Selenocysteine transfer RNA: a 94-nucleotide RNA from Olavius algarvensis associated proteobacterium Delta 3. Rfam 15.1 lists 4,211 matches to the family in 3,344 species. The family's consensus secondary structure is taken from published work.
RNA sequence: GGAAGUGCGCAGCUAGCUGGUGCGGCUCCCGGACUUCAAAUUCGGUGUGGGGCGUUAACACCGUCCCGGGUGGGUUCGAUUCCCAUGCACUUCC
Numbered sequence: 001g002g003a004a005g006u007g008c009g010c011a012g013c014u015a016g017c018u019g020g021u022g023c024g025g026c027u028c029c030c031g032g033a034c035u036u037c038a039a040a041u042u043c044g045g046u047g048u049g050g051g052g053c054g055u056u057a058a059c060a061c062c063g064u065c066c067c068g069g070g071u072g073g074g075u076u077c078g079a080u081u082c083c084c085a086u087g088c089a090c091u092u093c094c
Stems, first nucleotide, its partner, number of pairs: 001094009012027001014025001016023002029045005048068005071085004
Dot-bracket structure: (((((((((..(.(.((....)).).).(((((.......)))))..(((((...........)))))..((((.......)))))))))))))